[Rfam]
RNA sequence: UGUUGCUGCCCUUCUUGGGCGUUUCCUCCCUAAACUUCGGGCCACUCGCAAGGGUGGCCUUUUUCUUUCUUAGGG
Numbered sequence: 001u002g003u004u005g006c007u008g009c010c011c012u013u014c015u016u017g018g019g020c021g022u023u024u025c026c027u028c029c030c031u032a033a034a035c036u037u038c039g040g041g042c043c044a045c046u047c048g049c050a051a052g053g054g055u056g057g058c059c060u061u062u063u064u065c066u067u068u069c070u071u072a073g074g075g
Base pairs, nucleotide, nucleotide: 008020009019010018011017039060040059041058042057043056044055045054046053047052
The family of this 75-nucleotide RNA from Microvirga aerilata is "Makes More Granules Regulator RNA (mmgR)". The family is grouped with related families in Rfam's "suhB sRNA clan". The family's RNA type in Rfam is small RNA. It scores 73 bits against the family's covariance model. Pairs were carried over by alignment from the consensus structure.